The record is a 95-nucleotide sequence from Cohnella luojiensis, which matches "c-di-GMP-I riboswitch aptamer" in Rfam. Rfam's curators write: GEMM was predicted in a large-scale screen for bacterial structured RNA regulatory elements. It scores 73 bits against the family's covariance model.
Nucleotides: 095
Stems, first nucleotide, its partner, number of pairs: 012038002017033004022029002041089004046085003049080003056074007
Number, partner (000 for none) and nucleotide at each position: 001000a002000c003000a004000g005000a006000a007000c008000a009000a010000a011000g012038g013037c014000a015000a016000a017033u018032c019031c020030g021000u022029c023028c024000g025000a026000a027000a028023g029022g030020c031019g032018g033017a034000g035000a036000c037013g038012c039000a040000a041089a042088a043087c044086c045000a046085c047084g048083g049080g050079u051078c052000u053000u054000a055000g056074c057073c058072a059071u060070u061069c062068c063000c064000a065000a066000u067000u068062g069061g070060g071059a072058u073057g074056g075000a076000a077000u078051g079050a080049c081000a082000g083048c084047c085046g086044g087043g088042u089041u090000g091000c092000u093000c094000g095000a